[Rfam]
The family of this 57-nucleotide sequence from Nesterenkonia sandarakina is "msiK RNA". The organism belongs to Nesterenkonia, within Bacteria. A search with the family's covariance model found it, with a score of 62 bits.
RNA sequence: CACAAUCACCUUCACAACGGAUCGUCGGGCACGUACCUGCCCGUGAAAGGGACAUAU
Numbered sequence: 001c002a003c004a005a006u007c008a009c010c011u012u013c014a015c016a017a018c019g020g021a022u023c024g025u026c027g028g029g030c031a032c033g034u035a036c037c038u039g040c041c042c043g044u045g046a047a048a049g050g051g052a053c054a055u056a057u
Base pairs, nucleotide, nucleotide: 009049011047012046013045014044026043027042028041029040030039031038